[Rfam]
RNA sequence: UGCCCCAAUUGUGGGGGGUACACUCACGUGUUAAUAGCCUAGUUCUUUGGCCGAACUUGGUGGUUAGUGAAUC
Numbered sequence: 001u002g003c004c005c006c007a008a009u010u011g012u013g014g015g016g017g018g019u020a021c022a023c024u025c026a027c028g029u030g031u032u033a034a035u036a037g038c039c040u041a042g043u044u045c046u047u048u049g050g051c052c053g054a055a056c057u058u059g060g061u062g063g064u065u066a067g068u069g070a071a072u073c
Stems, first nucleotide, its partner, number of pairs: 001020006031067005037061003041057005
Dot-bracket structure: ((((((........))))))..........(((((.(((.(((((.......))))).))).)))))......
RNA: L13-Bacteroidia ribosomal protein leader